A member of the RNA family "Glm Y RNA activator of glmS mRNA" from Leminorella richardii, 160 nucleotides long. The family's RNA type in Rfam is small RNA.

RNA sequence: CGUCGCUCAUUCACCUUUUUAUGUCAGAACGCGGUAACGUGACGCUACAUAAGCCUUAGAAUGAUGCCAAAGCCAUGGUGCCUAUCGUCAAUUGAACCGAUAUCAACUGCGCAAGCAGCUUAUCAAACUCAAGACGACACGUUGAGUGAGGCGCCAGCCC
Numbered sequence: 001c002g003u004c005g006c007u008c009a010u011u012c013a014c015c016u017u018u019u020u021a022u023g024u025c026a027g028a029a030c031g032c033g034g035u036a037a038c039g040u041g042a043c044g045c046u047a048c049a050u051a052a053g054c055c056u057u058a059g060a061a062u063g064a065u066g067c068c069a070a071a072g073c074c075a076u077g078g079u080g081c082c083u084a085u086c087g088u089c090a091a092u093u094g095a096a097c098c099g100a101u102a103u104c105a106a107c108u109g110c111g112c113a114a115g116c117a118g119c120u121u122a123u124c125a126a127a128c129u130c131a132a133g134a135c136g137a138c139a140c141g142u143u144g145a146g147u148g149a150g151g152c153g154c155c156a157g158c159c160c
Stems, first nucleotide, its partner, number of pairs: 005067002007064006019052006026046002077155007086136004099124004138148003
Rfam describes the family as follows. This family consists of a number of bacterial RNA genes of around 167 bases in length. The tke1 RNA gene is present in Escherichia coli, Shigella flexneri, Yersinia pestis and Salmonella species where it is found between the yfhK and purL genes. The function of this RNA is unknown.